TPP riboswitch aptamer (THI element): a 95-nucleotide RNA from Fusibacter sp. A1. Vitamin B(1) in its active form thiamin pyrophosphate (TPP) is an essential coenzyme that is synthesised by coupling of pyrimidine and thiazole moieties in bacteria.
RNA sequence: UAUUUGCACUAGGGGUGCCUUCGGGCUGAGAGCAAUAGCAACCCUUCAAACCUGAUCCAGUUAGUACUGGCGUAGGGAAGUGAGACUGAUAUCCU
Numbered sequence: 001u002a003u004u005u006g007c008a009c010u011a012g013g014g015g016u017g018c019c020u021u022c023g024g025g026c027u028g029a030g031a032g033c034a035a036u037a038g039c040a041a042c043c044c045u046u047c048a049a050a051c052c053u054g055a056u057c058c059a060g061u062u063a064g065u066a067c068u069g070g071c072g073u074a075g076g077g078a079a080g081u082g083a084g085a086c087u088g089a090u091a092u093c094c095u
Stems, first nucleotide, its partner, number of pairs: 007082004011045004017026003033038001051076004057070004

Lineage of the source: Bacteria > Bacillota > Clostridia > Eubacteriales > Fusibacter.